[Rfam]
The family of this 156-nucleotide RNA from Drosophila pseudoobscura is "U4atac minor spliceosomal RNA".
RNA sequence: CACUUCCUUGUCUUGGGGAGCAGAAAUGUCCAAUGAACGUCUAGUGAGGGCAUUGCUGCUGACACCAAUUACAUUUAUUCCCGUCUGCCAGGCCACUCACUGUGGCUGGUCUUCGGAAUUUUUGGCCAAAGGCUCCCUUACUUUAUAGGGAGCCGC
Numbered sequence: 001c002a003c004u005u006c007c008u009u010g011u012c013u014u015g016g017g018g019a020g021c022a023g024a025a026a027u028g029u030c031c032a033a034u035g036a037a038c039g040u041c042u043a044g045u046g047a048g049g050g051c052a053u054u055g056c057u058g059c060u061g062a063c064a065c066c067a068a069u070u071a072c073a074u075u076u077a078u079u080c081c082c083g084u085c086u087g088c089c090a091g092g093c094c095a096c097u098c099a100c101u102g103u104g105g106c107u108g109g110u111c112u113u114c115g116g117a118a119u120u121u122u123u124g125g126c127c128a129a130a131g132g133c134u135c136c137c138u139u140a141c142u143u144u145a146u147a148g149g150g151a152g153c154c155g156c
Stems, first nucleotide, its partner, number of pairs: 005019005020059004025054007037045002081116003088109004093104001
Pairs were carried over by alignment from the consensus structure, which is taken from published work.
Clan: U4 clan.
U4atac is an essential component of the minor U12-type spliceosome complex which is required for removal of the rarer class of eukaryotic introns (AT-AC, U12-type).
The sequence is in the family's curated seed alignment.